[Rfam]
RNA: Metazoan signal recognition particle RNA
RNA sequence: GGUUGCGGUGGAGCUCGGCUGCCCACCUGAGUAAAACCACCACAGUCCUUUCUGGCGCCCAAUGUGGGGCCAAACGUGAGCCCGCCGGAUCGCUUGAGCCCAGGAGUUCUGGGCUGCAGUGCGCUAUGCCGAACGGGCGUCCGCGCUAAGGCCGGCAUCAAUAUGGUGAGCCCCAGGGAGCCGGGGCACACCAGGUUGCCUAAGGAGGGGUGAACCCGCCCAGGUCGGAAACAGAGCAGGUCAAAAUUCCCAUGCCGGUCAUUAGCGGGAUCGCGCCUGUGAAUAGCCACUGCAACGUAGCCUGGGCAACACAGAGAGACGCGAGCUCCU
Numbered sequence: 001g002g003u004u005g006c007g008g009u010g011g012a013g014c015u016c017g018g019c020u021g022c023c024c025a026c027c028u029g030a031g032u033a034a035a036a037c038c039a040c041c042a043c044a045g046u047c048c049u050u051u052c053u054g055g056c057g058c059c060c061a062a063u064g065u066g067g068g069g070c071c072a073a074a075c076g077u078g079a080g081c082c083c084g085c086c087g088g089a090u091c092g093c094u095u096g097a098g099c100c101c102a103g104g105a106g107u108u109c110u111g112g113g114c115u116g117c118a119g120u121g122c123g124c125u126a127u128g129c130c131g132a133a134c135g136g137g138c139g140u141c142c143g144c145g146c147u148a149a150g151g152c153c154g155g156c157a158u159c160a161a162u163a164u165g166g167u168g169a170g171c172c173c174c175a176g177g178g179a180g181c182c183g184g185g186g187c188a189c190a191c192c193a194g195g196u197u198g199c200c201u202a203a204g205g206a207g208g209g210g211u212g213a214a215c216c217c218g219c220c221c222a223g224g225u226c227g228g229a230a231a232c233a234g235a236g237c238a239g240g241u242c243a244a245a246a247u248u249c250c251c252a253u254g255c256c257g258g259u260c261a262u263u264a265g266c267g268g269g270a271u272c273g274c275g276c277c278u279g280u281g282a283a284u285a286g287c288c289a290c291u292g293c294a295a296c297g298u299a300g301c302c303u304g305g306g307c308a309a310c311a312c313a314g315a316g317a318g319a320c321g322c323g324a325g326c327u328c329c330u
Stems, first nucleotide, its partner, number of pairs: 001020005007014001078328004083323003090317002093314002098307007109300003113296001115294007123287005129281001133280008141269002144267005150260009159198004164193005170187005176181001199205002207250005218241003225234001227232001